[Rfam]
This 103-nucleotide sequence from Rhodobacteraceae bacterium HTCC2150 belongs to the Rfam family "Pyrrolysine insertion sequence mttB". Rfam classes the family as a cis-regulatory element. Rfam 15.1 lists 416 matches to the family in 326 species. Pairs were carried over by alignment from the consensus structure, which was predicted with CMfinder. Its family is annotated with pyrrolysine incorporation in the Gene Ontology. The match comes from Rfam's covariance-model search (42 bits).
RNA sequence: AUGGCAGAUGCCAAGGCGAUUGAUGCACAGAUGGGCGCUGAAAAGGCGCUGGCGGCUGUUACUGCCGGUUUAUCAGGAGCCAACAUGGUUUAUGAAAGUUCUG
Numbered sequence: 001a002u003g004g005c006a007g008a009u010g011c012c013a014a015g016g017c018g019a020u021u022g023a024u025g026c027a028c029a030g031a032u033g034g035g036c037g038c039u040g041a042a043a044a045g046g047c048g049c050u051g052g053c054g055g056c057u058g059u060u061a062c063u064g065c066c067g068g069u070u071u072a073u074c075a076g077g078a079g080c081c082a083a084c085a086u087g088g089u090u091u092a093u094g095a096a097a098g099u100u101c102u103g
Stems, first nucleotide, its partner, number of pairs: 003012001025032001033062001035060001077101001079099002